Notes
The record is a 144-nucleotide sequence from Neobacillus vireti, which matches "c-di-AMP riboswitch aptamer (ydaO/yuaA leader)" in Rfam. This family represents a conserved RNA structure found upstream of the ydaO and yuaA genes in Bacillus subtilis and related genes in other bacteria. The source organism's lineage runs through Bacteria, Bacilli, Bacillaceae, Neobacillus and Neobacillus vireti.
RNA sequence: AUUUCUAAAUCGCUGAAACCUUUUGGUACGGGGGAACCAUUUUUUCGGGUUAUUUAUAACCCAAGGGGUGAAUCCUAAUUAGGAAGGGCUACUCAAUGGCCCGAAUCCGACAGCUAACCUCGUAAGCGUUAUAUGAGAAGGAAG
Numbered sequence: 001a002u003u004u005c006u007a008a009a010u011c012g013c014u015g016a017a018a019c020c021u022u023u024u025g026g027u028a029c030g031g032g033g034g035a036a037c038c039a040u041u042u043u044u045u046c047g048g049g050u051u052a053u054u055u056a057u058a059a060c061c062c063a064a065g066g067g068g069u070g071a072a073u074c075c076u077a078a079u080u081a082g083g084a085a086g087g088g089c090u091a092c093u094c095a096a097u098g099g100c101c102c103g104a105a106u107c108c109g110a111c112a113g114c115u116a117a118c119c120u121c122g123u124a125a126g127c128g129u130u131a132u133a134u135g136a137g138a139a140g141g142a143a144g
Stems, first nucleotide, its partner, number of pairs: 011128004018027003028123006038065001066108003074083003086102004